Background
Lysine riboswitch aptamer: a 212-nucleotide RNA sequence from Paenibacillus sp. J45TS6. For this family Rfam cites "Riboswitches Control Fundamental Biochemical Pathways in Bacillus subtilis and Other Bacteria" (Mandal et al., Cell, 2003).

[Rfam]
RNA sequence: CGGUGAGGUAGAGGUCGCGAAUACGAUCAGUAAACCAGGAGAGGCAUAUGAGCUGCCGCUGGUAUCCGGGCUGAAAGGCGUAUUUGCCGAAAUCUGCGAGUAAUGCUCUAUUGAAAUAUACUCCAGGUUGGGGCUGUUAUCCGAAAGGGACAGAACUGUCAUAGCAUGAUUCUCUUUGUGAAAGGGAACAGCUAUGUUGAGCUAUCUUCACA
Number, nucleotide and partner (000 for none) at each position: 001c000002g000003g000004u000005g000006a207007g206008g205009u204010a203011g202012a000013g000014g000015u000016c000017g087018c086019g085020a084021a083022u082023a081024c080025g079026a000027u000028c000029a000030g000031u000032a000033a072034a000035c070036c069037a000038g067039g066040a065041g000042a000043g000044g000045c000046a000047u000048a000049u000050g000051a000052g000053c000054u000055g000056c000057c000058g000059c000060u000061g000062g000063u000064a000065u040066c039067c038068g000069g036070g035071c000072u033073g000074a000075a000076a000077g000078g000079c025080g024081u023082a022083u021084u020085u019086g018087c017088c000089g000090a000091a129092a128093u127094c126095u125096g124097c000098g123099a122100g121101u120102a119103a000104u000105g000106c000107u000108c000109u000110a000111u000112u000113g000114a000115a000116a000117u000118a000119u102120a101121c100122u099123c098124c096125a095126g094127g093128u092129u091130g157131g156132g000133g000134c153135u152136g151137u150138u149139a000140u147141c000142c000143g000144a000145a000146a000147g140148g000149g138150a137151c136152a135153g134154a000155a000156c131157u130158g000159u000160c196161a195162u194163a193164g192165c191166a000167u000168g000169a000170u000171u000172c000173u000174c000175u000176u000177u000178g000179u000180g000181a000182a000183a000184g000185g000186g000187a000188a000189c000190a000191g165192c164193u163194a162195u161196g160197u000198u000199g000200a000201g000202c011203u010204a009205u008206c007207u006208u000209c000210a000211c000212a000